[Rfam]
RNA sequence: UCGGGGUAAAAUAGUGAGUAGCCGACUUAGGGAAGUAAUCAACCCUUGGGAUAAGUUUAAAUAUCCUUUUUUAAACCCCAGAAACUUUUUACCGUUGGUAAAAAUAAUCUUCUUCGGGUAAAAAAAAAACCAGAUUUAAAUUUAGCUCAAUGGUUGAUGAUGUAUUUUCCCCAAGAAGGUUGCUCACUAUUUUACCCCAC
Dot-bracket structure: ..(((((((((((((((((((((..(((.((((((..(((((((.(((((.((((.((((((.(..((((((..((((.((....((((((((...))))))))........)).))))....))))))..).)))))).)))).))))).)))...))))....)))))).)))..)))))))))))))))))))))..

Shown here is a 200-nucleotide RNA from Medicago truncatula, a member of the family "MIR2670 microRNA precursor family". Lineage of the source: Eukaryota > Gunneridae > Pentapetalae > rosids > Medicago. The sequence is in the family's curated seed alignment. Rfam 15.1 lists 188 matches to the family in 2 species.